Rfam assigns this 141-nucleotide RNA from Hominimerdicola alba to the family "FMN riboswitch aptamer (RFN element)". Gene Ontology term of the family: FMN binding. Lineage of the source: Bacteria > Clostridia > Oscillospiraceae > Hominimerdicola > Hominimerdicola alba. The match comes from Rfam's covariance-model search (90 bits). The RFN element is a highly conserved domain that is found frequently in the 5'-untranslated regions of prokaryotic mRNAs that encode for flavin mononucleotide (FMN) biosynthesis and transport proteins.

[Rfam]
RNA sequence: AAUAUGUUUCAGGGGUGGUGUGAUUCCACACCGGAGGUGAUCGCGGCAAGCUGACCGCGUAAGUCCUCGACCGCACAAAAGUGCGCUGAUCGGGUGAGAUUCCCGAACCGACGGUAAGAGUCCGGAUGGAAGAAACGACAU
Numbered sequence: 001a002a003u004a005u006g007u008u009u010c011a012g013g014g015g016u017g018g019u020g021u022g023a024u025u026c027c028a029c030a031c032c033g034g035a036g037g038u039g040a041u042c043g044c045g046g047c048a049a050g051c052u053g054a055c056c057g058c059g060u061a062a063g064u065c066c067u068c069g070a071c072c073g074c075a076c077a078a079a080a081g082u083g084c085g086c087u088g089a090u091c092g093g094g095u096g097a098g099a100u101u102c103c104c105g106a107a108c109c110g111a112c113g114g115u116a117a118g119a120g121u122c123c124g125g126a127u128g129g130a131a132g133a134a135a136c137g138a139c140a141u
Stems, first nucleotide, its partner, number of pairs: 005137006016028003030121002032110002034068004063108002072085002090106005112124003